[Rfam]
RNA sequence: CUUGAGUGGGAAUAAAAGGCAAAUACAAAUUGGAGCGAGAAUGCCUAUUUAACAACAUUUGUUACGAUGUGAAAUGGAUAAAAACUGUUAAAAAUGAUAUGGUUCCCUGCCAAAUCCCUGCCAAAGAAUCUAAUUUGGUGGGGGUUUUUGU
Number, nucleotide and partner (000 for none) at each position: 001c000002u000003u000004g000005a000006g000007u000008g107009g106010g105011a104012a103013u000014a000015a000016a000017a000018g000019g000020c000021a000022a000023a000024u000025a000026c000027a000028a000029a000030u000031u000032g000033g000034a000035g000036c000037g000038a000039g000040a000041a000042u000043g000044c000045c000046u000047a000048u000049u084050u083051a000052a000053c000054a079055a000056c000057a000058u076059u000060u074061g000062u072063u071064a070065c000066g000067a000068u000069g000070u064071g063072a062073a000074a060075u000076g058077g000078a000079u054080a000081a000082a000083a050084a049085c000086u096087g095088u094089u000090a000091a000092a000093a000094a088095u087096g086097a000098u000099a000100u000101g000102g000103u012104u011105c010106c009107c008108u000109g000110c000111c000112a147113a146114a145115u144116c143117c142118c141119u140120g139121c138122c137123a136124a135125a134126g000127a000128a000129u000130c000131u000132a000133a000134u125135u124136u123137g122138g121139u120140g119141g118142g117143g116144g115145u114146u113147u112148u000149u000150g000151u000
Rfam assigns this 151-nucleotide RNA from Sporolactobacillus shoreae to the family "Listeria sRNA rli38". The base pairs follow the family's consensus structure, which was predicted with RNAalifold. On this family, see Toledo-Arana et al., Nature 2009: "The Listeria transcriptional landscape from saprophytism to virulence". By type it is a small RNA.